[Rfam]
RNA sequence: UGACCUUUGCAACACUCUGGCUCUUACCGUUCCUUCCCGCCUUCGGGCCUGGGUUGAACAAUACCUCGUGGUAUAGGCUUAUUUUGCGCAAAGAAGAUCAACGACCCUCUACUCACCGCGGUGUUCUUUGGAGAAGUUCUACUUUUUCUGUGGACACGGUGGUCCAUUUUUUCGGUCUACAU
Numbered sequence: 001u002g003a004c005c006u007u008u009g010c011a012a013c014a015c016u017c018u019g020g021c022u023c024u025u026a027c028c029g030u031u032c033c034u035u036c037c038c039g040c041c042u043u044c045g046g047g048c049c050u051g052g053g054u055u056g057a058a059c060a061a062u063a064c065c066u067c068g069u070g071g072u073a074u075a076g077g078c079u080u081a082u083u084u085u086g087c088g089c090a091a092a093g094a095a096g097a098u099c100a101a102c103g104a105c106c107c108u109c110u111a112c113u114c115a116c117c118g119c120g121g122u123g124u125u126c127u128u129u130g131g132a133g134a135a136g137u138u139c140u141a142c143u144u145u146u147u148c149u150g151u152g153g154a155c156a157c158g159g160u161g162g163u164c165c166a167u168u169u170u171u172u173c174g175g176u177c178u179a180c181a182u
Base pairs, nucleotide, nucleotide: 007091008090009089019079020078021077022076025073026072027071028070029069030068103177104176105175106174116162117161118160119159121157122156123155125154126153127152

Source information:
The family of this 182-nucleotide RNA from Aspergillus versicolor is "Small nucleolar RNA snR80". Rfam classes the family as an H/ACA-box small nucleolar RNA. The match comes from Rfam's covariance-model search (40 bits).